[Rfam]
RNA sequence: AACCGCACCCCACGGUGAAAAAUACACUGAUUAAAGAAGUGCUGGUAGACAUACACGUAUGGCCGAAGGCAGGGACUUAGGAAAAGCAGACAA
Number, nucleotide and partner (000 for none) at each position: 001a000002a000003c000004c000005g000006c017007a016008c015009c014010c000011c000012a000013c000014g009015g008016u007017g006018a000019a000020a000021a000022a000023u000024a000025c000026a000027c000028u000029g000030a000031u000032u000033a000034a000035a000036g000037a000038a000039g000040u071041g070042c069043u000044g000045g000046u000047a000048g064049a000050c000051a060052u059053a058054c000055a000056c000057g000058u053059a052060u051061g000062g000063c000064c048065g000066a000067a000068g000069g042070c041071a040072g000073g000074g000075a000076c000077u000078u000079a000080g000081g000082a000083a000084a000085a000086g000087c000088a000089g000090a000091c000092a000093a000
Shown here is a 93-nucleotide RNA sequence, a member of the family "RT-17 RNA".